[Rfam]
RNA sequence: UUAAAAGAGUCAGGGGGUUGUACCCACCCCUGGGGCCCACGUGGCGCCAGUACACUGGUGUGCUAGCACCUUUGUACGCCUGUUUUUCCC
Number, nucleotide and partner (000 for none) at each position: 001u000002u000003a086004a085005a084006a083007g000008a081009g000010u034011c033012a000013g031014g030015g029016g028017g027018u026019u000020g000021u000022a000023c000024c000025c000026a018027c017028c016029c015030c014031u013032g000033g011034g010035g045036c044037c043038c000039a000040c000041g000042u000043g037044g036045c035046g079047c078048c000049a000050g077051u076052a075053c074054a000055c000056u000057g070058g069059u068060g067061u000062g000063c000064u000065a000066g000067c060068a059069c058070c057071u000072u000073u000074g053075u052076a051077c050078g047079c046080c000081u008082g000083u006084u005085u004086u003087u000088c000089c000090c000